[Rfam]
Nucleotides: 079
Stems, first nucleotide, its partner, number of pairs: 004075017021057013
Number, partner (000 for none) and nucleotide at each position: 001000a002000g003000c004075g005074c006073c007072g008071c009070u010069a011068a012067a013066g014065g015064u016063c017062a018061u019060g020059a021057u022056c023055u024054u025053u026052a027051g028050c029049g030048g031047c032046g033045u034000u035000c036000g037000u038000g039000g040000c041000a042000a043000a044000a045033g046032c047031g048030c049029c050028g051027c052026u053025a054024a055023a056022g057021g058000u059020u060019c061018g062017u063016g064015g065014u066013c067012u068011u069010u070009a071008g072007c073006g074005g075004c076000c077000g078000u079000a